[Rfam]
RNA: MIR2912 microRNA precursor family
Organism: Populus tomentosa
RNA sequence: UCUAGAAAUCAAGAUAUGGACUGAACAUUGAAUAGUAUCUGGGCUGCAGGACAGCUUCAGACUUAUUUGUUGUUCCUAUAAUUUGGACUUCAAAACAGCCUUUUUAAAUCUUGGGCUCCCAUGAAAGUUGUAGUCCUAUGUCUUACCUUUCUAUC
Numbered sequence: 001u002c003u004a005g006a007a008a009u010c011a012a013g014a015u016a017u018g019g020a021c022u023g024a025a026c027a028u029u030g031a032a033u034a035g036u037a038u039c040u041g042g043g044c045u046g047c048a049g050g051a052c053a054g055c056u057u058c059a060g061a062c063u064u065a066u067u068u069g070u071u072g073u074u075c076c077u078a079u080a081a082u083u084u085g086g087a088c089u090u091c092a093a094a095a096c097a098g099c100c101u102u103u104u105u106a107a108a109u110c111u112u113g114g115g116c117u118c119c120c121a122u123g124a125a126a127g128u129u130g131u132a133g134u135c136c137u138a139u140g141u142c143u144u145a146c147c148u149u150u151c152u153a154u155c
Stems, first nucleotide, its partner, number of pairs: 003153005009145001011144009021133003025129001027128003035122002041119003045115001048112004054105001060099001062098002068092002072088003